[Rfam]
RNA sequence: UGGAAGUGAUGAAAUGGAGAUAAUUGGAUGUCUUUCUGAAUGGAGUGUGUGUGAUCGGAUUUAAACCAAAUCAGAUGGGUUUGGGGCUGGCGGGGGAGGGAGAAAUGUGUGUUUGUGUGUGCAUGUAUAGAAAAAGGCUUUAAAUGGGGGCACUGAUAAUGCAGUGCUGAUUCCGGAGUGCAUCUGAGGCAUGUUGCUAAAUUCUGGGGUGCCAUUUUGCAACAUUGCCGAUGAUUAAAGCCCAAAACAAGCCCACCAGGACAAGCCUAGGCAUCCUAAAUCUCUAACAGGUUCACUAAUGAAAGUGAUCCUGUGAUCUGAUCCGA
Numbered sequence: 001u002g003g004a005a006g007u008g009a010u011g012a013a014a015u016g017g018a019g020a021u022a023a024u025u026g027g028a029u030g031u032c033u034u035u036c037u038g039a040a041u042g043g044a045g046u047g048u049g050u051g052u053g054a055u056c057g058g059a060u061u062u063a064a065a066c067c068a069a070a071u072c073a074g075a076u077g078g079g080u081u082u083g084g085g086g087c088u089g090g091c092g093g094g095g096g097a098g099g100g101a102g103a104a105a106u107g108u109g110u111g112u113u114u115g116u117g118u119g120u121g122c123a124u125g126u127a128u129a130g131a132a133a134a135a136g137g138c139u140u141u142a143a144a145u146g147g148g149g150g151c152a153c154u155g156a157u158a159a160u161g162c163a164g165u166g167c168u169g170a171u172u173c174c175g176g177a178g179u180g181c182a183u184c185u186g187a188g189g190c191a192u193g194u195u196g197c198u199a200a201a202u203u204c205u206g207g208g209g210u211g212c213c214a215u216u217u218u219g220c221a222a223c224a225u226u227g228c229c230g231a232u233g234a235u236u237a238a239a240g241c242c243c244a245a246a247a248c249a250a251g252c253c254c255a256c257c258a259g260g261a262c263a264a265g266c267c268u269a270g271g272c273a274u275c276c277u278a279a280a281u282c283u284c285u286a287a288c289a290g291g292u293u294c295a296c297u298a299a300u301g302a303a304a305g306u307g308a309u310c311c312u313g314u315g316a317u318c319u320g321a322u323c324c325g326a
Stems, first nucleotide, its partner, number of pairs: 001325004192224006199217001203211001204209001
RNA: Small Cajal body-specific RNA 7